About this RNA:
This 79-nucleotide RNA sequence from Hermetia illucens belongs to the Rfam family "drz-agam-1 ribozyme". On this family, see Webb et al., Science 2009: "Widespread occurrence of self-cleaving ribozymes". Rfam 15.1 lists 10,507 matches to the family in 53 species. It scores 37 bits against the family's covariance model. The organism belongs to Hermetia, within Eukaryota.

[Rfam]
RNA sequence: UACUACCAAACCCUAUCUCCACCUUCACGUGGUGACAACUGAGAGCUUUUUCUUAACGAAAAGCUACAGACAGAGAAGG
Numbered sequence: 001u002a003c004u005a006c007c008a009a010a011c012c013c014u015a016u017c018u019c020c021a022c023c024u025u026c027a028c029g030u031g032g033u034g035a036c037a038a039c040u041g042a043g044a045g046c047u048u049u050u051u052c053u054u055a056a057c058g059a060a061a062a063g064c065u066a067c068a069g070a071c072a073g074a075g076a077a078g079g
Stems, first nucleotide, its partner, number of pairs: 012079003016075001018073001021033003044065007052058001